[Rfam]
RNA sequence: AGAAAAGCGUUGAUGGGAACAAGUACCCUGUCGGUUUUCUGCCCAGAGAGGCCCCGGUUGGUGAAAGGGGCGUGCAGAACCACAGGCGAAAUACCUCCCGGAGCUGUAGGCUGAAUGGGGUGCCGCCCCUAGUAGGCUGUGCCGCGUGCGAGCGUUACAAACGCAGGAGUGUAGCCCUUAACUUCUGGGGCCCGCACUCGUGAGGCUGUCCCCGUGAGGGGCCGGCAAACAGAGGUGGUACCGCGAUUUUCUCGCCCUCUGC
Numbered sequence: 001a002g003a004a005a006a007g008c009g010u011u012g013a014u015g016g017g018a019a020c021a022a023g024u025a026c027c028c029u030g031u032c033g034g035u036u037u038u039c040u041g042c043c044c045a046g047a048g049a050g051g052c053c054c055c056g057g058u059u060g061g062u063g064a065a066a067g068g069g070g071c072g073u074g075c076a077g078a079a080c081c082a083c084a085g086g087c088g089a090a091a092u093a094c095c096u097c098c099c100g101g102a103g104c105u106g107u108a109g110g111c112u113g114a115a116u117g118g119g120g121u122g123c124c125g126c127c128c129c130u131a132g133u134a135g136g137c138u139g140u141g142c143c144g145c146g147u148g149c150g151a152g153c154g155u156u157a158c159a160a161a162c163g164c165a166g167g168a169g170u171g172u173a174g175c176c177c178u179u180a181a182c183u184u185c186u187g188g189g190g191c192c193c194g195c196a197c198u199c200g201u202g203a204g205g206c207u208g209u210c211c212c213c214g215u216g217a218g219g220g221g222c223c224g225g226c227a228a229a230c231a232g233a234g235g236u237g238g239u240a241c242c243g244c245g246a247u248u249u250u251c252u253c254g255c256c257c258u259c260u261g262c
Stems, first nucleotide, its partner, number of pairs: 007104002015099004027086005039077003051071005107141002109138004143154003205226004210221002232259004243255004
Dot-bracket structure: ......((......((((........(((((.......(((.........(((((...........)))))...)))....))))).........))))...))..((((((......................)))).)).(((......)))..................................................((((.((........)).)))).....((((.......((((.....))))))))...